[Rfam]
RNA sequence: ACGCAGAAGGGAGGUGGUCCAAACAAUGGUUGAUUGUUCUUGGACUAGCGAGGUGGCUGUCCGCUAGGACUCGUCCAUCUGGACCUUCCGUCUGGAUGUCGGACGACGUCCUGGCGAAUCCUCAACAGGCACCGGAACCCCGGGCAGCCGGCGGCCGCGGACGCGUGACGUCCCGGCCAUGGUCCAGCCGGCCCGCCUCGUCGCGAGGCGGAGCGCGCCCGGGGUUCUUUUUU
Numbered sequence: 001a002c003g004c005a006g007a008a009g010g011g012a013g014g015u016g017g018u019c020c021a022a023a024c025a026a027u028g029g030u031u032g033a034u035u036g037u038u039c040u041u042g043g044a045c046u047a048g049c050g051a052g053g054u055g056g057c058u059g060u061c062c063g064c065u066a067g068g069a070c071u072c073g074u075c076c077a078u079c080u081g082g083a084c085c086u087u088c089c090g091u092c093u094g095g096a097u098g099u100c101g102g103a104c105g106a107c108g109u110c111c112u113g114g115c116g117a118a119u120c121c122u123c124a125a126c127a128g129g130c131a132c133c134g135g136a137a138c139c140c141c142g143g144g145c146a147g148c149c150g151g152c153g154g155c156c157g158c159g160g161a162c163g164c165g166u167g168a169c170g171u172c173c174c175g176g177c178c179a180u181g182g183u184c185c186a187g188c189c190g191g192c193c194c195g196c197c198u199c200g201u202c203g204c205g206a207g208g209c210g211g212a213g214c215g216c217g218c219c220c221g222g223g224g225u226u227c228u229u230u231u232u233u
Stems, first nucleotide, its partner, number of pairs: 013061006062116007071106005134228012